[Rfam]
RNA sequence: GUCAGUAACUCAGGUCUAAAGACACGCUCGCUUGGUCGAGAGAAAUCAAACAAGCUAUACUGACCCGUCAAGCGUCUUAACUGACUACGUUUUUUGAGUCAUGACACCCCGGAAUGCGAAGCUAGUUCCUUGCUCUGUCAUCUGCAAUUAAACAGUUUUCAAGUCACUGAAACAGUGUUGCAGGUCUAAAAAGCUCGCCAAACAUUGACUAAGCUAACAUUAC
Numbered sequence: 001g002u003c004a005g006u007a008a009c010u011c012a013g014g015u016c017u018a019a020a021g022a023c024a025c026g027c028u029c030g031c032u033u034g035g036u037c038g039a040g041a042g043a044a045a046u047c048a049a050a051c052a053a054g055c056u057a058u059a060c061u062g063a064c065c066c067g068u069c070a071a072g073c074g075u076c077u078u079a080a081c082u083g084a085c086u087a088c089g090u091u092u093u094u095u096g097a098g099u100c101a102u103g104a105c106a107c108c109c110c111g112g113a114a115u116g117c118g119a120a121g122c123u124a125g126u127u128c129c130u131u132g133c134u135c136u137g138u139c140a141u142c143u144g145c146a147a148u149u150a151a152a153c154a155g156u157u158u159u160c161a162a163g164u165c166a167c168u169g170a171a172a173c174a175g176u177g178u179u180g181c182a183g184g185u186c187u188a189a190a191a192a193g194c195u196c197g198c199c200a201a202a203c204a205u206u207g208a209c210u211a212a213g214c215u216a217a218c219a220u221u222a223c
Base pairs, nucleotide, nucleotide: 001064002063003062004061005060006059007058011030012028013027015022016021031054032053033052034051067209068208069207070206071205072086074085075084076083089203090202091201092200095197096196097195098194099193104138105137108132111129112128113127114126115125120215121214122213123212140185141184142183143182144181145180146179147178148177152176153175155173156172158171159170160169161168
RNA: HNH endonuclease-associated RNA and ORF (HEARO) RNA